The family of this 106-nucleotide sequence from Wenzhouxiangella sp. XN24 is "SAM-I/IV (S-adenosyl methionine) riboswitch aptamer". Gene Ontology terms of the family: regulation of gene expression and S-adenosylmethionine metabolic process. Pairs were carried over by alignment from the consensus structure, which is taken from published work. The organism belongs to Wenzhouxiangella, within Bacteria.
RNA sequence: AUCACGCAUCAAGAGUGAGCUGACGCUCCGCCAACCUGCCCGACCCGGGCAAGGUGGCUGCCCCGAAAGGGGGAUGUGGCCGACCCAGGCAACGAACCGGGUCCAU
Numbered sequence: 001a002u003c004a005c006g007c008a009u010c011a012a013g014a015g016u017g018a019g020c021u022g023a024c025g026c027u028c029c030g031c032c033a034a035c036c037u038g039c040c041c042g043a044c045c046c047g048g049g050c051a052a053g054g055u056g057g058c059u060g061c062c063c064c065g066a067a068a069g070g071g072g073g074a075u076g077u078g079g080c081c082g083a084c085c086c087a088g089g090c091a092a093c094g095a096a097c098c099g100g101g102u103c104c105a106u
Stems, first nucleotide, its partner, number of pairs: 006077005015029001017028004030058003035054003038050003042102001044100002079090003